[Rfam]
A member of the RNA family "Pseudomon-Rho RNA" from Pseudomonas sp. StFLB209, 100 nucleotides long. By type it is a cis-regulatory element. Pairs were carried over by alignment from the consensus structure, which is taken from published work.
RNA sequence: UUCGGCUCCGCAACGGUUUCUCCGUUGCCCCCUGCAAGCCGUCGCCGACGCUCUCCUUUCGAUUCAGUACGCGAUCCUUUCGCCAUCUCUGCGGCGCGGU
Numbered sequence: 001u002u003c004g005g006c007u008c009c010g011c012a013a014c015g016g017u018u019u020c021u022c023c024g025u026u027g028c029c030c031c032c033u034g035c036a037a038g039c040c041g042u043c044g045c046c047g048a049c050g051c052u053c054u055c056c057u058u059u060c061g062a063u064u065c066a067g068u069a070c071g072c073g074a075u076c077c078u079u080u081c082g083c084c085a086u087c088u089c090u091g092c093g094g095c096g097c098g099g100u
Stems, first nucleotide, its partner, number of pairs: 010028006038100004043096005071083004